Overview:
This 118-nucleotide sequence from Oryza barthii belongs to the Rfam family "U5 spliceosomal RNA". The organism belongs to Oryza, within Eukaryota. The family's RNA type in Rfam is spliceosomal small nuclear RNA.

RNA sequence: AGCUGCGUGGUGAGCACAAAGCGAACUAUUCUUUCGCCUUUUACUAAAGAAUACCGUGUGCGCGCCACAAAUAGCAGCAUACUCUUAUUUUUGGAGGGUGUUCUCUUUUUGAGAAAAC
Numbered sequence: 001a002g003c004u005g006c007g008u009g010g011u012g013a014g015c016a017c018a019a020a021g022c023g024a025a026c027u028a029u030u031c032u033u034u035c036g037c038c039u040u041u042u043a044c045u046a047a048a049g050a051a052u053a054c055c056g057u058g059u060g061c062g063c064g065c066c067a068c069a070a071a072u073a074g075c076a077g078c079a080u081a082c083u084c085u086u087a088u089u090u091u092u093g094g095a096g097g098g099u100g101u102u103c104u105c106u107u108u109u110u111g112a113g114a115a116a117a118c
Stems, first nucleotide, its partner, number of pairs: 003077004008067005014061005027053008100118003104114002